[Rfam]
RNA sequence: AGCGCUGCGCAAGUGGGCCGACGGUCGACUCCGGCGGCGCAGGGGUCUCAGCCCGGCCCCGGAAAGCUGCAG
Numbered sequence: 001a002g003c004g005c006u007g008c009g010c011a012a013g014u015g016g017g018c019c020g021a022c023g024g025u026c027g028a029c030u031c032c033g034g035c036g037g038c039g040c041a042g043g044g045g046u047c048u049c050a051g052c053c054c055g056g057c058c059c060c061g062g063a064a065a066g067c068u069g070c071a072g
Base pairs, nucleotide, nucleotide: 003039004038005037006036007035008034042060043059044058045057046056047055
This 72-nucleotide sequence from Mycobacterium parascrofulaceum belongs to the Rfam family "hya RNA".
The family's RNA type in Rfam is cis-regulatory element.